[Rfam]
RNA sequence: AUCGCUUCUCGGCUUUUGGCUAAGAUCAAGUGUAGUAUCUGUUCUUAUCAGUUUAUAUCUGAUAUGUCCUCUAUCAGGGGACAACAUAUUAAAUGGAUUUUAGCAGUGGGAGUUGAAAAAGGGGCUUGCUCCAUUCACUCCACGCAUCGACCCGGUAUUGCAGCGUUGCUGGGAACGGUGCACCCAUC
Numbered sequence: 001a002u003c004g005c006u007u008c009u010c011g012g013c014u015u016u017u018g019g020c021u022a023a024g025a026u027c028a029a030g031u032g033u034a035g036u037a038u039c040u041g042u043u044c045u046u047a048u049c050a051g052u053u054u055a056u057a058u059c060u061g062a063u064a065u066g067u068c069c070u071c072u073a074u075c076a077g078g079g080g081a082c083a084a085c086a087u088a089u090u091a092a093a094u095g096g097a098u099u100u101u102a103g104c105a106g107u108g109g110g111a112g113u114u115g116a117a118a119a120a121g122g123g124g125c126u127u128g129c130u131c132c133a134u135u136c137a138c139u140c141c142a143c144g145c146a147u148c149g150a151c152c153c154g155g156u157a158u159u160g161c162a163g164c165g166u167u168g169c170u171g172g173g174a175a176c177g178g179u180g181c182a183c184c185c186a187u188c
Stems, first nucleotide, its partner, number of pairs: 007025003011021004046064006066082007109141005115135002121132004144181006151173006
A member of the RNA family "U2 spliceosomal RNA" from Etheostoma spectabile, 188 nucleotides long. Clan: U2 clan. The match comes from Rfam's covariance-model search (161 bits). NCBI's taxonomy places the organism under Eukaryota, Gnathostomata, Eupercaria, Percoidei, Oligocephalus.